[Rfam]
RNA sequence: UGGGAAUGAUGACAAACUUUGGUCCGUGUUUCUGAUUCAUUGUGACUGAGAAACUAAUCCAUUGGAUUAUUUCUGAUCCA
Numbered sequence: 001u002g003g004g005a006a007u008g009a010u011g012a013c014a015a016a017c018u019u020u021g022g023u024c025c026g027u028g029u030u031u032c033u034g035a036u037u038c039a040u041u042g043u044g045a046c047u048g049a050g051a052a053a054c055u056a057a058u059c060c061a062u063u064g065g066a067u068u069a070u071u072u073c074u075g076a077u078c079c080a
Stems, first nucleotide, its partner, number of pairs: 001080004